RNA: permuted transfer-messenger RNA
Organism: Dinoroseobacter shibae
RNA sequence: GGACAUAAACGCGCUCGUAAUAAGCGGAUCGGACCCGGGGGCGGUACCCGGCGGCUCCACCAACAGCCCUGUCGUUUGCAGGCAGAGGGGGCCGAAACAGGAUCGACGAACGUCUAAAGGGGUUAGCUUUGUCUCGGCUGGGUGCCACCGUUAUCGGCCUAAAUUGUACAGUUGCAAACGACAACCGUGCUCCGGUGGCCGUUGCUGCGUAA
Numbered sequence: 001g002g003a004c005a006u007a008a009a010c011g012c013g014c015u016c017g018u019a020a021u022a023a024g025c026g027g028a029u030c031g032g033a034c035c036c037g038g039g040g041g042c043g044g045u046a047c048c049c050g051g052c053g054g055c056u057c058c059a060c061c062a063a064c065a066g067c068c069c070u071g072u073c074g075u076u077u078g079c080a081g082g083c084a085g086a087g088g089g090g091g092c093c094g095a096a097a098c099a100g101g102a103u104c105g106a107c108g109a110a111c112g113u114c115u116a117a118a119g120g121g122g123u124u125a126g127c128u129u130u131g132u133c134u135c136g137g138c139u140g141g142g143u144g145c146c147a148c149c150g151u152u153a154u155c156g157g158c159c160u161a162a163a164u165u166g167u168a169c170a171g172u173u174g175c176a177a178a179c180g181a182c183a184a185c186c187g188u189g190c191u192c193c194g195g196u197g198g199c200c201g202u203u204g205c206u207g208c209g210u211a212a
Stems, first nucleotide, its partner, number of pairs: 001134005013123004025112002029109003035051005052094007135150003